[Rfam]
RNA: UnaL2 LINE 3' element
Organism: Coregonus sp. 'balchen'
RNA sequence: GUUACGCAUUACUGUACGUUGCUUUGGAUAAAAGCGUCUGCUAAACGGCUUAUA
Numbered sequence: 001g002u003u004a005c006g007c008a009u010u011a012c013u014g015u016a017c018g019u020u021g022c023u024u025u026g027g028a029u030a031a032a033a034g035c036g037u038c039u040g041c042u043a044a045a046c047g048g049c050u051u052a053u054a
Stems, first nucleotide, its partner, number of pairs: 013043001014041003020036006